[Rfam]
RNA: MIR529 microRNA precursor family
RNA sequence: ACAUCAAGGCUAAAGGAAGAAGAGAGAGAGUACAGCCUUAAUUAGCUCACACAGCAUAUGGCUAUAUAUCUAGAUCUCUUCUGCGAGUCUGAUACUGAUCUGAUCAAGGCUGUACCCUCUCUCUUCUUCUCCUAGUUUCUUGAUGC
Numbered sequence: 001a002c003a004u005c006a007a008g009g010c011u012a013a014a015g016g017a018a019g020a021a022g023a024g025a026g027a028g029a030g031u032a033c034a035g036c037c038u039u040a041a042u043u044a045g046c047u048c049a050c051a052c053a054g055c056a057u058a059u060g061g062c063u064a065u066a067u068a069u070c071u072a073g074a075u076c077u078c079u080u081c082u083g084c085g086a087g088u089c090u091g092a093u094a095c096u097g098a099u100c101u102g103a104u105c106a107a108g109g110c111u112g113u114a115c116c117c118u119c120u121c122u123c124u125u126c127u128u129c130u131c132c133u134a135g136u137u138u139c140u141u142g143a144u145g146c
Stems, first nucleotide, its partner, number of pairs: 005142002009136001012133001015130014030115009